[Rfam]
Nucleotides: 080
Stems, first nucleotide, its partner, number of pairs: 011070010026057001028055005
Number, partner (000 for none) and nucleotide at each position: 001000u002000g003000a004000a005000g006000g007000c008000a009000c010000a011070g012069a013068g014067c015066u016065u017064a018063g019062c020061u021000a022000a023000u024000u025000g026057g027000c028055g029054a030053g031052c032051a033000u034000u035000g036000u037000u038000c039000c040000u041000a042000u043000c044000a045000a046000u047000a048000u049000a050000u051032u052031g053030u054029u055028c056000a057026c058000a059000g060000u061020g062019g063018c064017u065016a066015a067014g068013u069012u070011c071000a072000g073000u074000g075000c076000c077000c078000g079000a080000a
The family of this 80-nucleotide sequence from Lepisosteus oculatus is "mir-27 microRNA precursor family". The base pairs follow the family's consensus structure, which was predicted with RNAalifold. The organism belongs to Lepisosteus, within Eukaryota. It scores 74 bits against the family's covariance model.